RNA sequence: GGGGCCGUACCGGUUUCGACGGGGGUCGCGAAGCAGAGCAGGGCAUGUCGAGCACCAGUAAGCUCGUAAAACCACUGGAAACGCAAUAAACGCCAACGACGAGCGUUUCGCUCUCGCCGCUUAAGCGGUGAGCCGCUGCACUGAUCUGUCCUUGGGUCAGGCGGAGGAAGGCAACUUCCUAAGGAUUCCUGCGUAGGGCCAUACUCCCCGAAACAGGCUCAUCCUGAACCGCAGCAGUGUCAUCUACAAGGAAUCGGCAUGUGCUGGGGUCACACGGCCCAUGCCUAAACUACGUGAAUCGCCGCGUGCCGGCCUGUCGGUUGGCUAAGCCCGCGGUUAAAUCAAAAUAAAUCGACUACACAUGUAGAACUGCCUGUAGAGGGCUUCCGGACGCGGGUUCGAUUCCCGCCGGCUCCACCA
Numbered sequence: 001g002g003g004g005c006c007g008u009a010c011c012g013g014u015u016u017c018g019a020c021g022g023g024g025g026u027c028g029c030g031a032a033g034c035a036g037a038g039c040a041g042g043g044c045a046u047g048u049c050g051a052g053c054a055c056c057a058g059u060a061a062g063c064u065c066g067u068a069a070a071a072c073c074a075c076u077g078g079a080a081a082c083g084c085a086a087u088a089a090a091c092g093c094c095a096a097c098g099a100c101g102a103g104c105g106u107u108u109c110g111c112u113c114u115c116g117c118c119g120c121u122u123a124a125g126c127g128g129u130g131a132g133c134c135g136c137u138g139c140a141c142u143g144a145u146c147u148g149u150c151c152u153u154g155g156g157u158c159a160g161g162c163g164g165a166g167g168a169a170g171g172c173a174a175c176u177u178c179c180u181a182a183g184g185a186u187u188c189c190u191g192c193g194u195a196g197g198g199c200c201a202u203a204c205u206c207c208c209c210g211a212a213a214c215a216g217g218c219u220c221a222u223c224c225u226g227a228a229c230c231g232c233a234g235c236a237g238u239g240u241c242a243u244c245u246a247c248a249a250g251g252a253a254u255c256g257g258c259a260u261g262u263g264c265u266g267g268g269g270u271c272a273c274a275c276g277g278c279c280c281a282u283g284c285c286u287a288a289a290c291u292a293c294g295u296g297a298a299u300c301g302c303c304g305c306g307u308g309c310c311g312g313c314c315u316g317u318c319g320g321u322u323g324g325c326u327a328a329g330c331c332c333g334c335g336g337u338u339a340a341a342u343c344a345a346a347a348u349a350a351a352u353c354g355a356c357u358a359c360a361c362a363u364g365u366a367g368a369a370c371u372g373c374c375u376g377u378a379g380a381g382g383g384c385u386u387c388c389g390g391a392c393g394c395g396g397g398u399u400c401g402a403u404u405c406c407c408g409c410c411g412g413c414u415c416c417a418c419c420a
Base pairs, nucleotide, nucleotide: 001416002415003414004413005412006411007410020389021388022387023386024385025384026383027382033377034376035375036374038373039372040371041370044364045363046362047361048360049066050065051064052063053062055078056077057076058075059074113132114131115130116129117128118127119126120125134239135238136237137236138235139234142221143220144219256285257284258283259282260281261280263278264277268299270297271296272295273294301337302336303335304334305333306332308330309329312325313324314323316356317355318354319353321349393409394408395407396406397405
Overview
transfer-messenger RNA: a 420-nucleotide sequence from Pigmentiphaga humi. About the family: Bacterial tmRNA, also known as 10Sa RNA or SsrA, is named for its dual tRNA and mRNA-like properties. Its role is to liberate the mRNA from a stalled ribosome. To accomplish this part of the tmRNA is used as a reading frame that ends in a translation stop signal. The source organism's lineage runs through Bacteria, Pseudomonadota, Betaproteobacteria, Alcaligenaceae and Pigmentiphaga.